The family of this 539-nucleotide part of an RNA from Plasmodium yoelii is "Eukaryotic large subunit ribosomal RNA". The family's consensus secondary structure is taken from published work.
RNA sequence: UAGAAAAAAGUAAGUAAGGGAAGUCGGCAAAAUAGAUCCGUAACUUCGGGAAAAGGAUUGGCUCUGAGGACAUAGAGUAGAUAAGUUAAUAUUAACGUUUGAAAUUAAGAUGUGAAGGAUGCUUCAUGGUUCGCUAUGGUGUAUUUGGAUUAUCUAAAUUUCUUAUGUUUUUUUAUCUUAACCUAUUCGCGACCAUAUUAAAACGCUGUGUAUUUCGAUACGCAGGCAGUUUUCUUAUGGUAUAUAAAUGUUAACUCAGAACUGAAACGGACAAGGGGAAUCCGACUGUUUAAUUAAAACUUAGCUUUGUGAUAGCCAGAAAUGGUAUUAACACAAAGUGAUUUCUGCCCAGUGCUUUGAAUGUCAAAUUGAUGAAAUUCAAUCAAGCGCAGGUAAACGGCGGGAGUAACUAUGACUCUCUUAAGGUAGCCAAAUGCCUCGUCAUCUAAUUAGUGACGCGCAUGAAUGGAUUAACGAGAUUCCCACUGUCCCUACUUGCUAUCUAGCGAAACCACAGCCAAGGGAACGGGCUUGGCCAA
Numbered sequence: 001u002a003g004a005a006a007a008a009a010g011u012a013a014g015u016a017a018g019g020g021a022a023g024u025c026g027g028c029a030a031a032a033u034a035g036a037u038c039c040g041u042a043a044c045u046u047c048g049g050g051a052a053a054a055g056g057a058u059u060g061g062c063u064c065u066g067a068g069g070a071c072a073u074a075g076a077g078u079a080g081a082u083a084a085g086u087u088a089a090u091a092u093u094a095a096c097g098u099u100u101g102a103a104a105u106u107a108a109g110a111u112g113u114g115a116a117g118g119a120u121g122c123u124u125c126a127u128g129g130u131u132c133g134c135u136a137u138g139g140u141g142u143a144u145u146u147g148g149a150u151u152a153u154c155u156a157a158a159u160u161u162c163u164u165a166u167g168u169u170u171u172u173u174u175a176u177c178u179u180a181a182c183c184u185a186u187u188c189g190c191g192a193c194c195a196u197a198u199u200a201a202a203a204c205g206c207u208g209u210g211u212a213u214u215u216c217g218a219u220a221c222g223c224a225g226g227c228a229g230u231u232u233u234c235u236u237a238u239g240g241u242a243u244a245u246a247a248a249u250g251u252u253a254a255c256u257c258a259g260a261a262c263u264g265a266a267a268c269g270g271a272c273a274a275g276g277g278g279a280a281u282c283c284g285a286c287u288g289u290u291u292a293a294u295u296a297a298a299a300c301u302u303a304g305c306u307u308u309g310u311g312a313u314a315g316c317c318a319g320a321a322a323u324g325g326u327a328u329u330a331a332c333a334c335a336a337a338g339u340g341a342u343u344u345c346u347g348c349c350c351a352g353u354g355c356u357u358u359g360a361a362u363g364u365c366a367a368a369u370u371g372a373u374g375a376a377a378u379u380c381a382a383u384c385a386a387g388c389g390c391a392g393g394u395a396a397a398c399g400g401c402g403g404g405a406g407u408a409a410c411u412a413u414g415a416c417u418c419u420c421u422u423a424a425g426g427u428a429g430c431c432a433a434a435u436g437c438c439u440c441g442u443c444a445u446c447u448a449a450u451u452a453g454u455g456a457c458g459c460g461c462a463u464g465a466a467u468g469g470a471u472u473a474a475c476g477a478g479a480u481u482c483c484c485a486c487u488g489u490c491c492c493u494a495c496u497u498g499c500u501a502u503c504u505a506g507c508g509a510a511a512c513c514a515c516a517g518c519c520a521a522g523g524g525a526a527c528g529g530g531c532u533u534g535g536c537c538a539a
Base pairs, nucleotide, nucleotide: 001505002504003503004502009500010499011498012497013496014495015494016493018491019490020489035059036058037057038056039055044049060263061262063260064259065258066257067256068255069252070251071250072249073248075241080236081235083233084178085177088174089173091171097166098165102161103160104159105158106157108155109154110153111152112151117146118145119144120143121142122141124139125138126137127136128135129134264268276484277483278482279481280480281479282478283476284475288300289299304339305338306337307336308335309334310333311332315326316325317324318323343470344469345468347401348400349399352398353397354394355393356392357391359390362389363388364387369382370381371380372379402420403419404418405417406416407415421425441457442456443455444454445453518535519534520533521532522531